The family of this 131-nucleotide sequence from Neomonachus schauinslandi is "Small nucleolar RNA SNORA61". From the family's description: ACA61 is a member of the H/ACA class of snoRNA that guide the sites of modification of uridines to pseudouridines. The source organism's lineage runs through Eukaryota, Opisthokonta, Teleostomi, Euteleostomi and Neomonachus. It scores 137 bits against the family's covariance model.
Nucleotides: 131
Base pairs, nucleotide, nucleotide: 003060004059005058006057007056019047020046021045022044023043025040026039027038028037077119078118079117080116081115082114083113093109
Number, partner (000 for none) and nucleotide at each position: 001000a002000c003060c004059c005058u006057c007056c008000g009000g010000u011000u012000c013000c014000c015000u016000u017000u018000c019047c020046c021045a022044u023043c024000g025040g026039a027038u028037c029000u030000g031000a032000a033000c034000a035000c036000u037028g038027g039026u040025c041000u042000u043023g044022g045021u046020g047019g048000u049000c050000g051000u052000a053000a054000a055000a056007g057006g058005a059004g060003g061000a062000a063000a064000a065000g066000g067000g068000a069000c070000a071000c072000u073000g074000a075000a076000g077119c078118u079117g080116g081115c082114c083113u084000c085000g086000u087000g088000g089000u090000g091000c092000u093109u094000a095000u096000a097000g098000u099000c100000u101000g102000u103000u104000a105000u106000a107000u108000a109093g110000a111000c112000u113083g114082g115081g116080c117079u118078a119077g120000u121000u122000u123000c124000a125000a126000a127000c128000a129000g130000g131000g